RNA sequence: AUAUAGCACUGUUUGCUAUCCCCAGCUAAUAACACAAUGACAUGUGAAAUAAUUUUUUCACGUAUCAUUGUGUUAUUGGUUGGGGAUAACAAAACAGUGUUAUUC
Numbered sequence: 001a002u003a004u005a006g007c008a009c010u011g012u013u014u015g016c017u018a019u020c021c022c023c024a025g026c027u028a029a030u031a032a033c034a035c036a037a038u039g040a041c042a043u044g045u046g047a048a049a050u051a052a053u054u055u056u057u058u059c060a061c062g063u064a065u066c067a068u069u070g071u072g073u074u075a076u077u078g079g080u081u082g083g084g085g086a087u088a089a090c091a092a093a094a095c096a097g098u099g100u101u102a103u104u105c
Stems, first nucleotide, its partner, number of pairs: 003103003012093004017088003021084020042063008

A member of the RNA family "MIR6274 microRNA precursor family" from Prunus dulcis, 105 nucleotides long. A search with the family's covariance model found it, with a score of 82 bits. Lineage of the source: Eukaryota > Euphyllophyta > Rosaceae > Amygdaleae > Prunus.